[Rfam]
RNA sequence: GUUGCGCCCCGACUUGAGCGGAAAUCCUUUUUUUUCAAUGGCAAAAGCGUUGGCGAAAAAAGAUUGGGAGCGGAAGGCGGAAUUUGGC
Numbered sequence: 001g002u003u004g005c006g007c008c009c010c011g012a013c014u015u016g017a018g019c020g021g022a023a024a025u026c027c028u029u030u031u032u033u034u035u036c037a038a039u040g041g042c043a044a045a046a047g048c049g050u051u052g053g054c055g056a057a058a059a060a061a062g063a064u065u066g067g068g069a070g071c072g073g074a075a076g077g078c079g080g081a082a083u084u085u086g087g088c
Base pairs, nucleotide, nucleotide: 009080010079011078013076014075018071019070023065024064025063026062029060030059031058032057033056034055036053